Source information: The record is a 90-nucleotide sequence, which matches "DUF3800-VII RNA" in Rfam. It is one of the family's seed sequences.
RNA sequence: UGCAGACAUGCGCGAGGUCACUCAAGGUCGGUUGAUAGCCGGCAGCACCGCUUUGACGUGUGGGAUCCUGAGCUCGGGGUCUGCAUUCUC
Numbered sequence: 001u002g003c004a005g006a007c008a009u010g011c012g013c014g015a016g017g018u019c020a021c022u023c024a025a026g027g028u029c030g031g032u033u034g035a036u037a038g039c040c041g042g043c044a045g046c047a048c049c050g051c052u053u054u055g056a057c058g059u060g061u062g063g064g065a066u067c068c069u070g071a072g073c074u075c076g077g078g079g080u081c082u083g084c085a086u087u088c089u090c
Stems, first nucleotide, its partner, number of pairs: 001085007011077001013076004021072003025069002027043007046060003